A member of the RNA family "mir-927 microRNA precursor family" from Bemisia tabaci, 85 nucleotides long.
A reference for the family is Berezikov et al. (2010), "Evolutionary flux of canonical microRNAs and mirtrons in Drosophila", Nat Genet.
The organism belongs to Bemisia, within Eukaryota.
Pairs were carried over by alignment from the consensus structure, which was predicted with RNAalifold.

Nucleotides: 085
Stems, first nucleotide, its partner, number of pairs: 010079011022067001024065001027062007035054002
Number, partner (000 for none) and nucleotide at each position: 001000u002000a003000u004000u005000c006000g007000u008000g009000g010079u011078u012077u013076g014075u015074u016073u017072u018071a019070g020069a021000a022067u023000g024065c025000u026000u027062a028061c029060g030059c031058u032057u033056u034000a035054c036053c037000g038000u039000g040000a041000a042000u043000u044000a045000u046000u047000u048000a049000g050000a051000g052000u053036g054035g055000c056033a057032a058031a059030g060029c061028g062027u063000u064000u065024g066000a067022a068000u069020u070019c071018u072017g073016g074015a075014a076013c077012g078011a079010a080000a081000c082000g083000c084000g085000a
A search with the family's covariance model found it, with a score of 70 bits.